[Rfam]
The record is a 61-nucleotide RNA from Conger conger, which matches "mir-723 microRNA precursor family" in Rfam. The family has 3 seed sequences and 207 matches in Rfam 15.1.
RNA sequence: GGCAGCUUUGAAUGAUGUUACUUCUUGUGAAAUUGAAGAAGACAUCAGUUAAAUCUGUGCU
Numbered sequence: 001g002g003c004a005g006c007u008u009u010g011a012a013u014g015a016u017g018u019u020a021c022u023u024c025u026u027g028u029g030a031a032a033u034u035g036a037a038g039a040a041g042a043c044a045u046c047a048g049u050u051a052a053a054u055c056u057g058u059g060c061u
Base pairs, nucleotide, nucleotide: 002058003057004056005055007053008052009051010050013047014046015045016044017043018042021041022040023039024038025037026036
It scores 79 bits against the family's covariance model.
The source organism's lineage runs through Eukaryota, Opisthokonta, Metazoa, Gnathostomata and Conger.